[Rfam]
RNA sequence: ACUUACCUGGCAGGGAGAUACCAUGAUCACGAAGGUGUUUUCUCUCCAGGGCGUGGUCUAUCCAUUGAGGCGCACUCCGUGGAUGCUGACCCCUGCGAUUUCCUCCAAAUGCGGGAAACUCGACUGCAUAAUUUGUGGUAGUGCGGGGGACUGUUCGCGCUCCUCUCG
Numbered sequence: 001a002c003u004u005a006c007c008u009g010g011c012a013g014g015g016a017g018a019u020a021c022c023a024u025g026a027u028c029a030c031g032a033a034g035g036u037g038u039u040u041u042c043u044c045u046c047c048a049g050g051g052c053g054u055g056g057u058c059u060a061u062c063c064a065u066u067g068a069g070g071c072g073c074a075c076u077c078c079g080u081g082g083a084u085g086c087u088g089a090c091c092c093c094u095g096c097g098a099u100u101u102c103c104u105c106c107a108a109a110u111g112c113g114g115g116a117a118a119c120u121c122g123a124c125u126g127c128a129u130a131a132u133u134u135g136u137g138g139u140a141g142u143g144c145g146g147g148g149g150a151c152u153g154u155u156c157g158c159g160c161u162c163c164u165c166u167c168g
Base pairs, nucleotide, nucleotide: 010127011126012125013124014045015044016043017042018041020039022037023036024035049093050092051091053090055087056086057085059083061081063079096122097121098120099118100116101115103114104113143167145165146164147163150161152159153158
U1 spliceosomal RNA: a 168-nucleotide sequence. U1 is a small nuclear RNA (snRNA) component of the spliceosome (involved in pre-mRNA splicing). Its 5' end forms complementary base pairs with the 5' splice junction, thus defining the 5' donor site of an intron. Rfam's curators put it in the seed alignment. Rfam links the family to the GO terms pre-mRNA 5'-splice site binding, mRNA 5'-splice site recognition and U1 snRNP.